[Rfam]
Nucleotides: 060
Stems, first nucleotide, its partner, number of pairs: 006054007022043008
Number, partner (000 for none) and nucleotide at each position: 001000c002000c003000g004000c005000u006054g007053g008052u009051c010050c011049g012048g013000g014000c015000c016000c017000c018000u019000c020000u021000g022043g023042c024041a025040g026039g027038u028037g029036c030000c031000c032000c033000g034000g035000c036029g037028c038027g039026c040025u041024u042023g043022u044000g045000a046000u047000g048012u049011c050010g051009g052008a053007c054006c055000g056000u057000u058000u059000c060000c